[Rfam]
Nucleotides: 199
Base pairs, nucleotide, nucleotide: 001199002198004196005195006194007193008192011188012187014185015184016183017182018181019180020179021178022177024175025174026173027172028171029170030169031168033166034165035164036163037162038161039160040159041158042157043156044155071128072127074125075124076123077122078121079120080119081118
Number, partner (000 for none) and nucleotide at each position: 001199a002198a003000a004196c005195a006194g007193c008192c009000c010000u011188u012187a013000c014185g015184u016183a017182u018181u019180g020179g021178a022177u023000c024175u025174u026173u027172g028171g029170c030169a031168g032000c033166u034165u035164u036163g037162g038161c039160c040159c041158u042157c043156a044155a045000g046000a047000c048000c049000a050000c051000u052000u053000u054000u055000g056000a057000c058000u059000u060000a061000c062000u063000c064000u065000u066000u067000g068000c069000u070000g071128a072127c073000g074125u075124g076123g077122c078121a079120c080119c081118c082000a083000c084000a085000u086000c087000c088000c089000u090000u091000a092000a093000g094000u095000g096000a097000g098000g099000u100000g101000c102000c103000u104000g105000u106000g107000u108000c109000g110000a111000c112000c113000a114000u115000u116000g117000u118081g119080g120079g121078u122077g123076u124075c125074a126000c127072g128071u129000c130000a131000u132000c133000g134000a135000a136000g137000a138000c139000u140000a141000a142000u143000u144000u145000a146000a147000a148000a149000g150000u151000g152000g153000u154000c155044u156043u157042g158041a159040g160039g161038g162037c163036c164035a165034a166033a167000a168031c169030u170029g171028c172027c173026a174025a175024a176000u177022a178021u179020c180019c181018a182017a183016u184015a185014c186000a187012u188011a189000g190000a191000g192008g193007g194006u195005u196004g197000u198002u199001u
Rfam assigns this 199-nucleotide sequence from Medicago truncatula to the family "MIR2619 microRNA precursor family". The family's consensus secondary structure was predicted with RNAalifold. NCBI's taxonomy places the organism under Eukaryota, Gunneridae, fabids, Fabales, Medicago. The match comes from Rfam's covariance-model search (149 bits). Rfam links the family to the GO terms miRNA-mediated post-transcriptional gene silencing and RISC complex.